[Rfam]
RNA sequence: CCGGCCGCCGGGUGGCGGCCGGUGUUCCGGCGCCCAUGGCCGGAACCCGUGUUCAACUCUUGUACCCAUGUUGCUCACAGGAGGAUAUGGCUAUGAGAA
Numbered sequence: 001c002c003g004g005c006c007g008c009c010g011g012g013u014g015g016c017g018g019c020c021g022g023u024g025u026u027c028c029g030g031c032g033c034c035c036a037u038g039g040c041c042g043g044a045a046c047c048c049g050u051g052u053u054c055a056a057c058u059c060u061u062g063u064a065c066c067c068a069u070g071u072u073g074c075u076c077a078c079a080g081g082a083g084g085a086u087a088u089g090g091c092u093a094u095g096a097g098a099a
Base pairs, nucleotide, nucleotide: 001022002021003020004019005018006017008015009014059097060096061095062094063093064092066090067089068088069087070086071085072084074083075082076081